The record is a 71-nucleotide RNA from Diabrotica balteata, which matches "mir-965 microRNA precursor family" in Rfam.
Taxonomically the source falls in Diabrotica (Eukaryota, Protostomia, Ecdysozoa, Diabroticites).
Rfam links the family to the GO terms RISC complex and miRNA-mediated post-transcriptional gene silencing.
The base pairs follow the family's consensus structure, which was predicted with RNAalifold.
The match comes from Rfam's covariance-model search (45 bits).
RNA sequence: AAUUUAAAAGGAGAAGCUACAUGUUAUAUAGACUAUACUACUAUAUAACAUGUAGCUUCUCCUUUUAAAAA
Numbered sequence: 001a002a003u004u005u006a007a008a009a010g011g012a013g014a015a016g017c018u019a020c021a022u023g024u025u026a027u028a029u030a031g032a033c034u035a036u037a038c039u040a041c042u043a044u045a046u047a048a049c050a051u052g053u054a055g056c057u058u059c060u061c062c063u064u065u066u067a068a069a070a071a
Stems, first nucleotide, its partner, number of pairs: 003069005009063003013059002017055005025048001027047004